[Rfam]
RNA: Glycine riboswitch aptamer
Organism: Streptomyces morookaense
RNA sequence: GCAGAUCUGAAAAGCGGGCCGCCCGUUCGGCGGUCCCACCCAAGGUGCAAGCCGGGGAGCUCCCGGUGAACCUCUCAGGUUCCGAUGACAGAUGGGGAGGA
Dot-bracket structure: .(..(((((......(((((((.......))))))).(((.(..(.(...(((((.......)))))....).))..)))........)))))..).....